6A RNA: a 52-nucleotide RNA sequence from Fusobacterium animalis.
RNA sequence: AUAUCUGCUCGUAUAGCAGCGAGCAAGUAAAAUAAAGAAAAGCUGAAUAUGA
Number, nucleotide and partner (000 for none) at each position: 001a000002u000003a000004u000005c000006u025007g024008c023009u022010c021011g020012u000013a000014u045015a044016g043017c042018a000019g000020c011021g010022a009023g008024c007025a006026a000027g000028u000029a000030a000031a000032a000033u000034a000035a000036a000037g000038a000039a000040a000041a000042g017043c016044u015045g014046a000047a000048u000049a000050u000051g000052a000
Taxonomically the source falls in Fusobacterium animalis (Bacteria, Fusobacteriati, Fusobacteriales, Fusobacterium). Pairs were carried over by alignment from the consensus structure, which is taken from published work. By type it is a small RNA.